A member of the RNA family "FMN riboswitch aptamer (RFN element)" from Gammaproteobacteria bacterium SCGC AG-212-F23, 147 nucleotides long. Lineage of the source: Bacteria > Pseudomonadati > Pseudomonadota > Gammaproteobacteria. About the family: The RFN element is a highly conserved domain that is found frequently in the 5'-untranslated regions of prokaryotic mRNAs that encode for flavin mononucleotide (FMN) biosynthesis and transport proteins.

[Rfam]
RNA sequence: UAGCGUCUUCAGGGCGGGGCGAAAUUCCCCACCGGCGGUAUGUUUAUUUUAUAAACGAGCCCGCGAGCGCCUUUUUAAAGAGAAGGGUCAGCAGAUUUGGUGAGAAACCAAGGCCGACGGUUACAGUCCGGAUAAAAGAAGUCACAG
Numbered sequence: 001u002a003g004c005g006u007c008u009u010c011a012g013g014g015c016g017g018g019g020c021g022a023a024a025u026u027c028c029c030c031a032c033c034g035g036c037g038g039u040a041u042g043u044u045u046a047u048u049u050u051a052u053a054a055a056c057g058a059g060c061c062c063g064c065g066a067g068c069g070c071c072u073u074u075u076u077a078a079a080g081a082g083a084a085g086g087g088u089c090a091g092c093a094g095a096u097u098u099g100g101u102g103a104g105a106a107a108c109c110a111a112g113g114c115c116g117a118c119g120g121u122u123a124c125a126g127u128c129c130g131g132a133u134a135a136a137a138g139a140a141g142u143c144a145c146a147g
Base pairs, nucleotide, nucleotide: 003145005143007141008140009139010138017029018028019027031127032126033116034115035064036063037062038061059114060113067092068091096112097111098110099109100108118130119129120128